[Rfam]
RNA sequence: UGGGACCUUCGGGGCCCUUCACUGACAGCCGGGCGCCAGGCGCGCCCGCAAAGCAAACGGAAGACAGGAA
Numbered sequence: 001u002g003g004g005a006c007c008u009u010c011g012g013g014g015c016c017c018u019u020c021a022c023u024g025a026c027a028g029c030c031g032g033g034c035g036c037c038a039g040g041c042g043c044g045c046c047c048g049c050a051a052a053g054c055a056a057a058c059g060g061a062a063g064a065c066a067g068g069a070a
Stems, first nucleotide, its partner, number of pairs: 002017003006014003030048007

Record summary
The family of this 70-nucleotide RNA from Wenxinia marina is "L2-Alphaproteobacteria ribosomal protein leader". The literature on the family includes a 2020 paper in BMC Microbiol by Eckert and Weinberg, "Discovery of 20 novel ribosomal leader candidates in bacteria and archaea". The source organism's lineage runs through Bacteria, Pseudomonadati, Alphaproteobacteria, Wenxinia and Wenxinia marina. It scores 55 bits against the family's covariance model.